[Rfam]
RNA sequence: UUUACCGUGAGGUAUGCAGUGAAGGAAGCGAGACUACAAAAUCCGGUACUGACGUAUUGAAAAUGCUGACCGUAAGCGUCAGUACAGAAACGACAUACAGAGGCCUGAUUAGGAGGGUAAGUAAGCACUACCUGUCCCUAUAUCGGGAUCAUUGCAAAGCCCGUAACCAACAAUCCUUACUAGGUAGAUGUCGCAGGAAUCGGAGGAAGGAAUCUGCU
Numbered sequence: 001u002u003u004a005c006c007g008u009g010a011g012g013u014a015u016g017c018a019g020u021g022a023a024g025g026a027a028g029c030g031a032g033a034c035u036a037c038a039a040a041a042u043c044c045g046g047u048a049c050u051g052a053c054g055u056a057u058u059g060a061a062a063a064u065g066c067u068g069a070c071c072g073u074a075a076g077c078g079u080c081a082g083u084a085c086a087g088a089a090a091c092g093a094c095a096u097a098c099a100g101a102g103g104c105c106u107g108a109u110u111a112g113g114a115g116g117g118u119a120a121g122u123a124a125g126c127a128c129u130a131c132c133u134g135u136c137c138c139u140a141u142a143u144c145g146g147g148a149u150c151a152u153u154g155c156a157a158a159g160c161c162c163g164u165a166a167c168c169a170a171c172a173a174u175c176c177u178u179a180c181u182a183g184g185u186a187g188a189u190g191u192c193g194c195a196g197g198a199a200u201c202g203g204a205g206g207a208a209g210g211a212a213u214c215u216g217c218u
Stems, first nucleotide, its partner, number of pairs: 001016001003014004028218001031215002037210001042204005047198001049196003091193006103185003107181001109179001111177004115162004121155004